[Rfam]
RNA sequence: UGAAAAAGUGGAGGCGAUGACUCGAGGUCUGUAAACUGGUCGCUUGCUCGAAAUUCUGGGCAAAGACCUCGACGAGCCAAUGGCGAAACCGUCCACUUGACA
Numbered sequence: 001u002g003a004a005a006a007a008g009u010g011g012a013g014g015c016g017a018u019g020a021c022u023c024g025a026g027g028u029c030u031g032u033a034a035a036c037u038g039g040u041c042g043c044u045u046g047c048u049c050g051a052a053a054u055u056c057u058g059g060g061c062a063a064a065g066a067c068c069u070c071g072a073c074g075a076g077c078c079a080a081u082g083g084c085g086a087a088a089c090c091g092u093c094c095a096c097u098u099g100a101c102a
Base pairs, nucleotide, nucleotide: 006098007097008096009095010094011093013078014077015076022072023071024070025069026068027067028066029065038090039089040086041085042084043083044082
About this RNA
c-di-GMP-II-GAG riboswitch aptamer: a 102-nucleotide sequence from Anaerolinea thermophila. Its Rfam clan is "c-di-GMP_II riboswitch clan". The base pairs follow the family's consensus structure, which is taken from published work.